Rfam assigns this 301-nucleotide RNA from Yersinia pestis to the family "Soft rot Enterobacteriaceae Rev 39 5'UTR".
For this family Rfam cites "Discovery and profiling of small RNAs responsive to stress conditions in the plant pathogen Pectobacterium atrosepticum" (Kwenda et al., BMC Genomics, 2016).
Rfam describes the family as follows. From bacteria cultured under starvation conditions.
The family's RNA type in Rfam is cis-regulatory element.
The source organism's lineage runs through Bacteria, Pseudomonadati, Pseudomonadota, Gammaproteobacteria and Yersinia pestis.

[Rfam]
RNA sequence: AAAUAUUGUCAGAUAACCAAUAACUGUGAUAACUCUGUAGGCAUUCGUUCGACACUAGAUAGAUGAACAACCUAAUUAUGAAAGCAAUUCUCCAAGUGAUUAACCUAGUCCUAAUUAGCGUGGUGGUGAUUAUUAUCCCACCGUGCGGGGCUGCACUUGGACGAAGAAAGGCAUAAAAAUCAAGCCUUAAUCUCAAGAGAACCCCCGCACCGAAAGGUCCGGGGGUUUUUUAUUGGCACGCUAAAGGACGCGAGGAGCAUAAAAUGCACAGCAGAAUAAAAUCCUGUUCCUCUCGAAAAAG
Numbered sequence: 001a002a003a004u005a006u007u008g009u010c011a012g013a014u015a016a017c018c019a020a021u022a023a024c025u026g027u028g029a030u031a032a033c034u035c036u037g038u039a040g041g042c043a044u045u046c047g048u049u050c051g052a053c054a055c056u057a058g059a060u061a062g063a064u065g066a067a068c069a070a071c072c073u074a075a076u077u078a079u080g081a082a083a084g085c086a087a088u089u090c091u092c093c094a095a096g097u098g099a100u101u102a103a104c105c106u107a108g109u110c111c112u113a114a115u116u117a118g119c120g121u122g123g124u125g126g127u128g129a130u131u132a133u134u135a136u137c138c139c140a141c142c143g144u145g146c147g148g149g150g151c152u153g154c155a156c157u158u159g160g161a162c163g164a165a166g167a168a169a170g171g172c173a174u175a176a177a178a179a180u181c182a183a184g185c186c187u188u189a190a191u192c193u194c195a196a197g198a199g200a201a202c203c204c205c206c207g208c209a210c211c212g213a214a215a216g217g218u219c220c221g222g223g224g225g226u227u228u229u230u231u232a233u234u235g236g237c238a239c240g241c242u243a244a245a246g247g248a249c250g251c252g253a254g255g256a257g258c259a260u261a262a263a264a265u266g267c268a269c270a271g272c273a274g275a276a277u278a279a280a281a282u283c284c285u286g287u288u289c290c291u292c293u294c295g296a297a298a299a300a301g
Stems, first nucleotide, its partner, number of pairs: 006032006016021001037076001038074004044067005049059002088254001090252001092250001100244003104240001105236004110120001112118001122142005128137003143162002146159004163194002165191001170187002174183001196231012209218003256288004262282001264277002
Dot-bracket structure: .....((((((....(....).....))))))....(((((..(((((((.......))...)))))...)))).)...........(.(.(.......(((.(((((.(.(.....).).(((((.(((....))))))))((.((((......)))).))(((....((..(........)..))...).)).((((((((((((.(((....))).)))))))))))).))))...).))).....).).).((((..(.((..........))....)..)))).............